[Rfam]
RNA: Enterobacteria rnk leader
Organism: Kosakonia cowanii
RNA sequence: AUCAUAAUUGAGGCAAAUGUGCGCCUGGUCACUUCACAGCAUGGGGCCGGGUUAGUAUCAUCAGCUUUAGACAAACCCUCGCUGCCCGUCGGCGAGGGUUUUUCUUUGGA
Numbered sequence: 001a002u003c004a005u006a007a008u009u010g011a012g013g014c015a016a017a018u019g020u021g022c023g024c025c026u027g028g029u030c031a032c033u034u035c036a037c038a039g040c041a042u043g044g045g046g047c048c049g050g051g052u053u054a055g056u057a058u059c060a061u062c063a064g065c066u067u068u069a070g071a072c073a074a075a076c077c078c079u080c081g082c083u084g085c086c087c088g089u090c091g092g093c094g095a096g097g098g099u100u101u102u103u104c105u106u107u108g109g110a
Stems, first nucleotide, its partner, number of pairs: 016034002019032003073101012